Shown here is a 77-nucleotide sequence from Acidocella sp. MX-AZ02, a member of the family "Makes More Granules Regulator RNA (mmgR)".
The family has 87 seed sequences and 1,791 matches in Rfam 15.1.
Rfam links the family to the GO terms response to nitrogen compound, protein binding and DNA-templated transcription, termination.

[Rfam]
RNA sequence: GUGUUCUCUCCUAUUUCUUGGACGUUUCCUCCCUAAACUUGGCGGUGCUUUUGUGCACCGCCUUUUUUUUGUCCUCU
Numbered sequence: 001g002u003g004u005u006c007u008c009u010c011c012u013a014u015u016u017c018u019u020g021g022a023c024g025u026u027u028c029c030u031c032c033c034u035a036a037a038c039u040u041g042g043c044g045g046u047g048c049u050u051u052u053g054u055g056c057a058c059c060g061c062c063u064u065u066u067u068u069u070u071g072u073c074c075u076c077u
Stems, first nucleotide, its partner, number of pairs: 003023004041062008
The source organism's lineage runs through Bacteria, Pseudomonadati, Pseudomonadota, Acidocellaceae and Acidocella. The family's RNA type in Rfam is small RNA.